Overview:
A member of the RNA family "Small nucleolar RNA SNORA65" from Electrophorus electricus, 125 nucleotides long. Gene Ontology terms of the family: nucleolus and RNA processing. From the family's description: U65 belongs to the H/ACA class of snoRNAs which are thought to guide the sites of modification of uridines to pseudouridines.

[Rfam]
RNA sequence: CCUGCCACUAUGCUAGUCUGAGUGUGACUGGGUAUAAUCCAGUGGAGGCUGAGAAUAAUCCAGCUCUAGGAAGCAGGGCUGCCCAGUCUGAUGGGCAACUCUGUGCCAAAAGGCCUGGAAUAAAU
Numbered sequence: 001c002c003u004g005c006c007a008c009u010a011u012g013c014u015a016g017u018c019u020g021a022g023u024g025u026g027a028c029u030g031g032g033u034a035u036a037a038u039c040c041a042g043u044g045g046a047g048g049c050u051g052a053g054a055a056u057a058a059u060c061c062a063g064c065u066c067u068a069g070g071a072a073g074c075a076g077g078g079c080u081g082c083c084c085a086g087u088c089u090g091a092u093g094g095g096c097a098a099c100u101c102u103g104u105g106c107c108a109a110a111a112g113g114c115c116u117g118g119a120a121u122a123a124a125u
Base pairs, nucleotide, nucleotide: 005045006044007043008042009041018032019031021029060118061117062116063115064113065112067110069107070106074103075102076101077100078099082095083094084093